[Rfam]
RNA: DUF3800-III RNA
RNA sequence: AAAGCGGUAUCGUAAGUCCUGGUGACCCUGACCGUUCGGAGAACGGGAUAGGCCACACUGCGAUGUGUGAGCGGGGAAGGGCGGCUGCAAUGCGCGCCCGGCAGACUGAAAUCGGGGCCCAGGGAGAGCCGCUUU
Numbered sequence: 001a002a003a004g005c006g007g008u009a010u011c012g013u014a015a016g017u018c019c020u021g022g023u024g025a026c027c028c029u030g031a032c033c034g035u036u037c038g039g040a041g042a043a044c045g046g047g048a049u050a051g052g053c054c055a056c057a058c059u060g061c062g063a064u065g066u067g068u069g070a071g072c073g074g075g076g077a078a079g080g081g082c083g084g085c086u087g088c089a090a091u092g093c094g095c096g097c098c099c100g101g102c103a104g105a106c107u108g109a110a111a112u113c114g115g116g117g118c119c120c121a122g123g124g125a126g127a128g129c130c131g132c133u134u135u
Stems, first nucleotide, its partner, number of pairs: 001135007010127002018123005026117003033045005079099005084093001